[Rfam]
RNA sequence: UCCUCCAGCUAAGGUGCAUCUAGUGUAGUUAGUGAAGUAUUCAAAGUCUACUGCCCUAGUUGCCCCUUCUGUCUGGAGGG
Numbered sequence: 001u002c003c004u005c006c007a008g009c010u011a012a013g014g015u016g017c018a019u020c021u022a023g024u025g026u027a028g029u030u031a032g033u034g035a036a037g038u039a040u041u042c043a044a045a046g047u048c049u050a051c052u053g054c055c056c057u058a059g060u061u062g063c064c065c066c067u068u069c070u071g072u073c074u075g076g077a078g079g080g
Stems, first nucleotide, its partner, number of pairs: 004077004008072002012067003016063003020059004025054002028052001030050003
RNA: mir-17 microRNA precursor family